[Rfam]
RNA sequence: CCUGUCUCAUCGGGGUGCCUCUGACUUUAAGUCACUUGGCUGAGAAAUUCUACCCGCUGAACCUGAUCCGGAUCAUACCGGCGUAGGGAGUGGGAUGACACGGGCU
Numbered sequence: 001c002c003u004g005u006c007u008c009a010u011c012g013g014g015g016u017g018c019c020u021c022u023g024a025c026u027u028u029a030a031g032u033c034a035c036u037u038g039g040c041u042g043a044g045a046a047a048u049u050c051u052a053c054c055c056g057c058u059g060a061a062c063c064u065g066a067u068c069c070g071g072a073u074c075a076u077a078c079c080g081g082c083g084u085a086g087g088g089a090g091u092g093g094g095a096u097g098a099c100a101c102g103g104g105c106u
Base pairs, nucleotide, nucleotide: 006094007093008092009091010090011056012055013054014053017040018039019038062087063086064085065084068081069080070079071078
Background
The family of this 106-nucleotide RNA sequence from Marinospirillum celere is "TPP riboswitch aptamer (THI element)". A search with the family's covariance model found it, with a score of 65 bits. Pairs were carried over by alignment from the consensus structure, which is taken from published work. Taxonomically the source falls in Marinospirillum (Bacteria, Pseudomonadota, Oceanospirillales, Oceanospirillaceae).